[Rfam]
RNA sequence: UCCAUCGCUGAUUGCCCUGCGACAUCAGCAAUUCCCUCUACUUUUGGGUGUUUCCCGAAAAGACGAGAUGACAGCACGUUUUUUAUGGAUGUCUUUUGAGCGUGCGGUAAUGCUUCCCUUUUCUAAACUUUGCUUCGGCAAGUUUUGAUGGGAAUGAAUCAAAAACUAGUCCCUGCA
Number, nucleotide and partner (000 for none) at each position: 001u000002c000003c000004a000005u000006c000007g029008c028009u027010g026011a025012u024013u000014g023015c000016c021017c000018u000019g000020c000021g016022a000023c014024a012025u011026c010027a009028g008029c007030a000031a000032u000033u000034c000035c070036c067037u066038c065039u000040a000041c062042u061043u060044u059045u057046g056047g055048g054049u000050g000051u000052u000053u000054c048055c047056c046057g045058a000059a044060a043061a042062g041063a000064c000065g038066a037067g036068a000069u000070g035071a000072c000073a000074g000075c000076a000077c000078g000079u000080u000081u000082u000083u000084u000085a000086u000087g000088g171089a170090u169091g166092u165093c000094u164095u163096u162097u161098g160099a159100g000101c000102g000103u000104g000105c000106g000107g000108u000109a000110a000111u000112g000113c156114u000115u153116c152117c151118c150119u000120u000121u000122u000123c000124u147125a146126a145127a144128c000129u000130u141131u140132g139133c138134u000135u000136c000137g000138g133139c132140a131141a130142g000143u000144u127145u126146u125147g124148a000149u000150g118151g117152g116153a115154a000155u000156g113157a000158a000159u099160c098161a097162a096163a095164a094165a092166c091167u000168a000169g090170u089171c088172c000173c000174u000175g000176c000177a000
This 177-nucleotide part of an RNA from Akanthomyces lecanii belongs to the Rfam family "Ascomycota telomerase RNA".
Rfam 15.1 lists 475 matches to the family in 456 species.
Rfam links the family to the GO terms telomerase catalytic core complex, telomere maintenance via telomerase and telomerase activity.
It is annotated as a non-coding RNA gene.